[Rfam]
RNA sequence: UAGUAGUGAUGAAAUUCCACUCCAUUGGUCCGUGUUUCUGAAUCAGAUGAUUUUCCUGGAUAAAAAAAAAAAAAAAAAGAUAGCAAAUAUUA
Number, nucleotide and partner (000 for none) at each position: 001u092002a091003g090004u089005a000006g000007u000008g000009a000010u000011g000012a000013a000014a000015u000016u000017c000018c000019a000020c000021u000022c000023c000024a000025u000026u000027g000028g000029u000030c000031c000032g000033u000034g000035u000036u000037u000038c000039u000040g000041a000042a000043u000044c000045a000046g000047a000048u000049g000050a000051u000052u000053u000054u000055c000056c000057u000058g000059g000060a000061u000062a000063a000064a000065a000066a000067a000068a000069a000070a000071a000072a000073a000074a000075a000076a000077a000078a000079g000080a000081u000082a000083g000084c000085a000086a000087a000088u000089a004090u003091u002092a001
RNA: Small nucleolar RNA SNORD18
Organism: Pipistrellus kuhlii